[Rfam]
Nucleotides: 076
Base pairs, nucleotide, nucleotide: 001076002075003074004073005072
Number, partner (000 for none) and nucleotide at each position: 001076a002075g003074c004073a005072a006000a007000a008000u009000g010000a011000u012000g013000a014000g015000u016000u017000a018000a019000a020000g021000c022000u023000u024000c025000u026000g027000a028000a029000u030000u031000u032000a033000u034000g035000a036000u037000g038000u039000u040000g041000a042000a043000a044000u045000c046000g047000u048000a049000c050000a051000u052000a053000g054000g055000u056000c057000u058000u059000c060000a061000a062000a063000g064000u065000u066000c067000u068000c069000u070000g071000a072005u073004u074003g075002c076001u
Small nucleolar RNA R160: a 76-nucleotide sequence from Amborella trichopoda. Lineage of the source: Eukaryota > Streptophyta > Spermatophyta > Magnoliopsida > Amborella. The base pairs follow the family's consensus structure. snoR160 is a C/D box small nucleolar RNA, which acts as a methylation guide for 25S ribosomal RNA in plants. snoR160 has been alternatively named snoZ270 in rice.